The record is a 135-nucleotide sequence from Scophthalmus maximus, which matches "U11 spliceosomal RNA" in Rfam. A reference for the family is Marz et al. (2008), "Evolution of spliceosomal snRNA genes in metazoan animals", J Mol Evol. It is annotated as a spliceosomal small nuclear RNA. The organism belongs to Scophthalmus, within Eukaryota.

[Rfam]
Nucleotides: 135
Base pairs, nucleotide, nucleotide: 008085009084010083011082012081013026014025015024016023017022027056028055029054030053031052032051034049035048036047037046038045057080058079059078060077061076062075063074103133104132105131106130108129109128110127112125114124115123116122
Number, partner (000 for none) and nucleotide at each position: 001000a002000a003000a004000a005000a006000g007000g008085g009084c010083u011082u012081c013026u014025g015024c016023c017022g018000u019000g020000a021000u022017u023016g024015g025014c026013a027056c028055a029054g030053g031052a032051a033000u034049c035048g036047u037046g038045g039000g040000u041000a042000a043000u044000a045038c046037c047036a048035u049034g050000u051032u052031u053030c054029u055028u056027g057080c058079g059078g060077a061076a062075u063074c064000a065000c066000u067000a068000u069000c070000a071000a072000g073000a074063g075062a076061u077060u078059u079058c080057g081012g082011a083010a084009g085008c086000a087000u088000a089000a090000u091000u092000u093000u094000u095000g096000a097000a098000a099000a100000c101000u102000g103133g104132g105131g106130c107000u108129g109128c110127u111000a112125g113000u114124g115123a116122u117000c118000a119000u120000c121000u122116g123115u124114c125112c126000g127110g128109g129108c130106g131105c132104c133103c134000c135000a